[Rfam]
RNA: Nucleoid-associated noncoding RNA 4 (CssrE)
Organism: Escherichia coli
RNA sequence: GGACGGAUAAGGCGUUUACGCUGCAUCCGGCAACCUAUGCCUGAUGCGACGCUGAAGCGUCUUAUCAUGCC
Numbered sequence: 001g002g003a004c005g006g007a008u009a010a011g012g013c014g015u016u017u018a019c020g021c022u023g024c025a026u027c028c029g030g031c032a033a034c035c036u037a038u039g040c041c042u043g044a045u046g047c048g049a050c051g052c053u054g055a056a057g058c059g060u061c062u063u064a065u066c067a068u069g070c071c
Stems, first nucleotide, its partner, number of pairs: 002031001004029005011022004039070002042067005048061005